[Rfam]
RNA sequence: UUGUGCCUGGCUCCCUGUAUGCCACACAUGUGGCUCAAUCUAAUUAUUUGACUGGCUAUUGUGAGUGGCCUGCAUGGAGUCAAGCAUGC
Numbered sequence: 001u002u003g004u005g006c007c008u009g010g011c012u013c014c015c016u017g018u019a020u021g022c023c024a025c026a027c028a029u030g031u032g033g034c035u036c037a038a039u040c041u042a043a044u045u046a047u048u049u050g051a052c053u054g055g056c057u058a059u060u061g062u063g064a065g066u067g068g069c070c071u072g073c074a075u076g077g078a079g080u081c082a083a084g085c086a087u088g089c
Stems, first nucleotide, its partner, number of pairs: 002088005008082007016074004021069004027063003
mir-160 microRNA precursor family: an 89-nucleotide RNA from Apostasia shenzhenica. A reference for the family is Rhoades et al. (2002), "Prediction of plant microRNA targets", Cell. Pairs were carried over by alignment from the consensus structure, which was predicted with PFOLD. Its family is annotated with miRNA-mediated post-transcriptional gene silencing and RISC complex in the Gene Ontology. Lineage of the source: Eukaryota > Viridiplantae > Liliopsida > Apostasioideae > Apostasia.